[Rfam]
RNA sequence: UUUAUAAAAUAUAAGAAUAUCCAUAUAUUUUUGGUGAUAUGGACCAAAAGUUUCUACAAGAAAACCGUAAAAUUUCUUGCUAUGGGUAAGUCAAAGCUAUAG
Numbered sequence: 001u002u003u004a005u006a007a008a009a010u011a012u013a014a015g016a017a018u019a020u021c022c023a024u025a026u027a028u029u030u031u032u033g034g035u036g037a038u039a040u041g042g043a044c045c046a047a048a049a050g051u052u053u054c055u056a057c058a059a060g061a062a063a064a065c066c067g068u069a070a071a072a073u074u075u076c077u078u079g080c081u082a083u084g085g086g087u088a089a090g091u092c093a094a095a096g097c098u099a100u101a102g
Stems, first nucleotide, its partner, number of pairs: 018088008029049007058078006
Purine riboswitch aptamer: a 102-nucleotide sequence from Clostridium senegalense.
Rfam describes the family as follows. Riboswitches are metabolite binding domains within certain messenger RNAs that serve as precision sensors for their corresponding targets.
NCBI's taxonomy places the organism under Bacteria, Bacillota, Clostridia, Eubacteriales, Clostridium.